The family of this 94-nucleotide RNA sequence from Elioraea sp. Yellowstone is "Selenocysteine transfer RNA". The family has 109 seed sequences and 4,211 matches in Rfam 15.1. A search with the family's covariance model found it, with a score of 74 bits. Gene Ontology term of the family: triplet codon-amino acid adaptor activity. Taxonomically the source falls in Elioraea (Bacteria, Pseudomonadati, Pseudomonadota, Acetobacterales).
[Rfam]
RNA sequence: GGAAGAGACUCGGCCCCGGUGGGCCGGCCGGCCUUCAAAGCCGGUCGGGGCGGCUGGACGCGGUCCCGGGCGGGUUCGACUCCCGCUCUCUUCC
Numbered sequence: 001g002g003a004a005g006a007g008a009c010u011c012g013g014c015c016c017c018g019g020u021g022g023g024c025c026g027g028c029c030g031g032c033c034u035u036c037a038a039a040g041c042c043g044g045u046c047g048g049g050g051c052g053g054c055u056g057g058a059c060g061c062g063g064u065c066c067c068g069g070g071c072g073g074g075u076u077c078g079a080c081u082c083c084c085g086c087u088c089u090c091u092u093c094c
Base pairs, nucleotide, nucleotide: 001094002093003092004091005090006089007088008087011026012025013024014023015022016021027045028044029043030042031041032040047067048066049065050064051063071085072084073083074082